The family of this 50-nucleotide RNA is "L31-Actinobacteria ribosomal protein leader". The family's consensus secondary structure is taken from published work.

[Rfam]
RNA sequence: CCGGUUCCGGUUCACGUCCGCUUCGUGCUCAUUAGGGCGACCCGGCGACC
Numbered sequence: 001c002c003g004g005u006u007c008c009g010g011u012u013c014a015c016g017u018c019c020g021c022u023u024c025g026u027g028c029u030c031a032u033u034a035g036g037g038c039g040a041c042c043c044g045g046c047g048a049c050c
Base pairs, nucleotide, nucleotide: 003050004049005048007045008044009043010042015039016038017037018036019035

It is one of the family's seed sequences. By type it is a cis-regulatory leader.